RNA sequence: UAUUAGGUUGGCACAAAAGUAAUCACAUUUUUUGUCAUUAUAAGUAAUGGCAAAAACUGUGAUUACUUUUGCGCCAACCUAAUA
Numbered sequence: 001u002a003u004u005a006g007g008u009u010g011g012c013a014c015a016a017a018a019g020u021a022a023u024c025a026c027a028u029u030u031u032u033u034g035u036c037a038u039u040a041u042a043a044g045u046a047a048u049g050g051c052a053a054a055a056a057c058u059g060u061g062a063u064u065a066c067u068u069u070u071g072c073g074c075c076a077a078c079c080u081a082a083u084a
Base pairs, nucleotide, nucleotide: 001084002083003082004081005080006079007078008077009076010075011074012073014071015070016069017068018067019066020065021064022063023062024061025060026059027058029056030055031054032053033052034051035050036049037048038047039046040045